[Rfam]
RNA sequence: UGGGGUCAACUUUGGUACGGAAGCAGAUCGAAAAAUAGCUACUUUGUUAUUUGUCGUUGCUCUAAAAAGUCAACGGCAACUAAGCAUGCUUCAAGAAUUAGCUUUUUUCUGUUCAGAUCUCGAAAACAUUCAGCGGCUCAGUGAUUGUCGAACAAUAGAUGAAGCGCAAAAAAUUCUGGCUCAAGCCUAAAGUUACGUCUGAAAAAAUCAAUUCAAUUUGAAAUGUUCAAUAAUUAUUGAAAUAAUUUUAUAUUAAAAAAUAAAAUAUUUUAAUUUAAGAGAUCAAACAAAAAAGAUAAGAAGAUUCCUUGACAAAAAAUAGGCCCUAUGAUAAAUUUAAGGUAACUUGUGACAAAGUCGUGCAUGGAUGCACUAAAAAGACACCCUAUCAGUAGUAGGGUGUCUUUUUUUGC
Numbered sequence: 001u002g003g004g005g006u007c008a009a010c011u012u013u014g015g016u017a018c019g020g021a022a023g024c025a026g027a028u029c030g031a032a033a034a035a036u037a038g039c040u041a042c043u044u045u046g047u048u049a050u051u052u053g054u055c056g057u058u059g060c061u062c063u064a065a066a067a068a069g070u071c072a073a074c075g076g077c078a079a080c081u082a083a084g085c086a087u088g089c090u091u092c093a094a095g096a097a098u099u100a101g102c103u104u105u106u107u108u109c110u111g112u113u114c115a116g117a118u119c120u121c122g123a124a125a126a127c128a129u130u131c132a133g134c135g136g137c138u139c140a141g142u143g144a145u146u147g148u149c150g151a152a153c154a155a156u157a158g159a160u161g162a163a164g165c166g167c168a169a170a171a172a173a174u175u176c177u178g179g180c181u182c183a184a185g186c187c188u189a190a191a192g193u194u195a196c197g198u199c200u201g202a203a204a205a206a207a208u209c210a211a212u213u214c215a216a217u218u219u220g221a222a223a224u225g226u227u228c229a230a231u232a233a234u235u236a237u238u239g240a241a242a243u244a245a246u247u248u249u250a251u252a253u254u255a256a257a258a259a260a261u262a263a264a265a266u267a268u269u270u271u272a273a274u275u276u277a278a279g280a281g282a283u284c285a286a287a288c289a290a291a292a293a294a295g296a297u298a299a300g301a302a303g304a305u306u307c308c309u310u311g312a313c314a315a316a317a318a319a320u321a322g323g324c325c326c327u328a329u330g331a332u333a334a335a336u337u338u339a340a341g342g343u344a345a346c347u348u349g350u351g352a353c354a355a356a357g358u359c360g361u362g363c364a365u366g367g368a369u370g371c372a373c374u375a376a377a378a379a380g381a382c383a384c385c386c387u388a389u390c391a392g393u394a395g396u397a398g399g400g401u402g403u404c405u406u407u408u409u410u411u412g413c
Base pairs, nucleotide, nucleotide: 004029005028006027007026010023011022012021013020041358042357043356044355045354046353047352048351049350050349056346057345058344059343060342061341063339064338065337066336069332070331071330072329075325076324077323080322081321082320091312092311093310094309095308096306097305098304099303102300103299104298105294106293107292108291110289111288112287113286116284117283118282119281120278122276123275124274138240139239140238141237142236143235144234145233146232147231148230150228151227152226153225154224156201157200158199159198160197161196163194164193165192178187179186180185208221209220210219211218245266246265247264248263249262250261251260360373361372362371363370364369375409376408377407378406379405380404381403382402383401384400385399386398387397388396389395
Dot-bracket structure: ...((((..((((......))))..))))...........((((((((((.....((((((.((((..((((..(((..(((........(((((((((..(((((((.((((..(((((.(((.............(((((((((((.(((((.((((((.(((............(((....)))....))).))))))......((((......))))..))))).)))))))))))....(((((((........))))))).......))).)..)))).)))).))))...)))..)))).))))).......))))))...))))...)))).))))))..)))))))))).(((((....))))).(((((((((((((((.....)))))))))))))))....
Rfam assigns this 413-nucleotide RNA from Enterococcus faecalis to the family "Enterococcus sRNA EF0408_EF0409". The base pairs follow the family's consensus structure, which was predicted with RNAfold. Lineage of the source: Bacteria > Bacillati > Bacilli > Enterococcaceae > Enterococcus faecalis.